Background
The record is a 73-nucleotide sequence from Megaselia scalaris, which matches "mir-137 microRNA precursor family" in Rfam. The match comes from Rfam's covariance-model search (62 bits). Lineage of the source: Eukaryota > Eumetazoa > Brachycera > Eremoneura > Megaselia. Its Rfam clan is "mir-137 clan". The literature on the family includes a 2007 paper in Genome Res by Ruby et al., "Evolution, biogenesis, expression, and target predictions of a substantially expanded set of Drosophila microRNAs".
RNA sequence: AAUGACCACGAGUAUUCUUGGGGAACUAACAUUUAUUUGCUAUGGUUAUUGCUUGAGAAUACACGUAGUUAAU
Numbered sequence: 001a002a003u004g005a006c007c008a009c010g011a012g013u014a015u016u017c018u019u020g021g022g023g024a025a026c027u028a029a030c031a032u033u034u035a036u037u038u039g040c041u042a043u044g045g046u047u048a049u050u051g052c053u054u055g056a057g058a059a060u061a062c063a064c065g066u067a068g069u070u071a072a073u
Base pairs, nucleotide, nucleotide: 001073003071004070005069008066009065010064012062013061014060015059016058017057018056019055020054021053022052025050027048028047029046030045032042